[Rfam]
RNA sequence: CUUGAUCGAGCCCACCCACAGCGGCCGCCCCGGCGGACGGCCCUGUCCAUAGGUGGCCAGCAACGCCUCCGCCUC
Numbered sequence: 001c002u003u004g005a006u007c008g009a010g011c012c013c014a015c016c017c018a019c020a021g022c023g024g025c026c027g028c029c030c031c032g033g034c035g036g037a038c039g040g041c042c043c044u045g046u047c048c049a050u051a052g053g054u055g056g057c058c059a060g061c062a063a064c065g066c067c068u069c070c071g072c073c074u075c
Base pairs, nucleotide, nucleotide: 016024017023031071032070033069038065039064043060044059045058047056048055049054
RNA: ASpks TB sRNA